About this RNA: Makes More Granules Regulator RNA (mmgR): a 72-nucleotide sequence from Skermanella aerolata. By type it is a small RNA.
RNA sequence: UGCAUACGCCUCUUUGGGCGUUUCCUCCCUAAACUCAGGCCGCCUUAACGGGCGGCUUUUUUUUGCACAAAU
Number, nucleotide and partner (000 for none) at each position: 001u000002g000003c000004a000005u000006a000007c000008g019009c018010c017011u016012c000013u000014u000015u000016g011017g010018g009019c008020g000021u000022u000023u000024c000025c000026u000027c000028c000029c000030u000031a000032a000033a000034c000035u000036c000037a000038g057039g056040c055041c054042g053043c052044c051045u050046u000047a000048a000049c000050g045051g044052g043053c042054g041055g040056c039057u038058u000059u000060u000061u000062u000063u000064u000065g000066c000067a000068c000069a000070a000071a000072u000
Annotation
Rfam's curators write: SuhB later renamed mmgR (makes more granules regulator) was a putative non-coding RNA found multiple times in the Agrobacterium tumefaciens genome and related alpha-proteobacteria. The pairing is the family consensus, mapped onto this sequence. The match comes from Rfam's covariance-model search (51 bits).